[Rfam]
RNA sequence: ACAUAUCACGAGUUUGUGCGUGAAUCUAACACCAUUGGAUUGAGUUGACAGCGUGAUCAUAAAGAUGGACGGCUGUGAUGGGGUUCGAUUCACGCACAAACUGGGGAUGUGUCC
Numbered sequence: 001a002c003a004u005a006u007c008a009c010g011a012g013u014u015u016g017u018g019c020g021u022g023a024a025u026c027u028a029a030c031a032c033c034a035u036u037g038g039a040u041u042g043a044g045u046u047g048a049c050a051g052c053g054u055g056a057u058c059a060u061a062a063a064g065a066u067g068g069a070c071g072g073c074u075g076u077g078a079u080g081g082g083g084u085u086c087g088a089u090u091c092a093c094g095c096a097c098a099a100a101c102u103g104g105g106g107a108u109g110u111g112u113c114c
Stems, first nucleotide, its partner, number of pairs: 001112003005108003011102016028085003032081002
The record is a 114-nucleotide sequence from Prunus armeniaca, which matches "MIR403 microRNA precursor family" in Rfam. On this family, see Mica et al., BMC Genomics 2009: "High throughput approaches reveal splicing of primary microRNA transcripts and tissue specific expression of mature microRNAs in Vitis vinifera".